A member of the RNA family "chrB-a RNA" from Rhodoblastus sp., 77 nucleotides long. Taxonomically the source falls in Rhodoblastus (Bacteria, Pseudomonadota, Alphaproteobacteria, Hyphomicrobiales).

RNA sequence: GGCAUGGGGAUGCGAUCUCCCCACGAGGCGACAGCCGAAGAAUCGCGCCCAUCCUUCAACUCAAGGGGCGCGCCAUG
Numbered sequence: 001g002g003c004a005u006g007g008g009g010a011u012g013c014g015a016u017c018u019c020c021c022c023a024c025g026a027g028g029c030g031a032c033a034g035c036c037g038a039a040g041a042a043u044c045g046c047g048c049c050c051a052u053c054c055u056u057c058a059a060c061u062c063a064a065g066g067g068g069c070g071c072g073c074c075a076u077g
Stems, first nucleotide, its partner, number of pairs: 005023006045071006